[Rfam]
RNA sequence: CGACGGGGACGACCUCGUCAUCAGCGCGGCCCGAUUCCCGCGGGACGACCCGC
Number, nucleotide and partner (000 for none) at each position: 001c000002g019003a018004c017005g016006g015007g014008g013009a000010c000011g000012a000013c008014c007015u006016c005017g004018u003019c002020a000021u000022c000023a000024g000025c000026g000027c000028g000029g000030c000031c000032c000033g000034a000035u000036u000037c000038c000039c000040g053041c052042g051043g050044g049045a000046c000047g000048a000049c044050c043051c042052g041053c040